[Rfam]
RNA sequence: GUUGAGGGGAAUGCUGUCUGGUUCGAGACCAUUCACCUGAAGCGCCGCCCACAUUGAUCAUCUUUUGAGUGAUCUCGGACCAGGCUUCAUUCCCCCCAAC
Numbered sequence: 001g002u003u004g005a006g007g008g009g010a011a012u013g014c015u016g017u018c019u020g021g022u023u024c025g026a027g028a029c030c031a032u033u034c035a036c037c038u039g040a041a042g043c044g045c046c047g048c049c050c051a052c053a054u055u056g057a058u059c060a061u062c063u064u065u066u067g068a069g070u071g072a073u074c075u076c077g078g079a080c081c082a083g084g085c086u087u088c089a090u091u092c093c094c095c096c097c098a099a100c
Stems, first nucleotide, its partner, number of pairs: 001100004006095008016085006024077003
RNA: mir-166 microRNA precursor family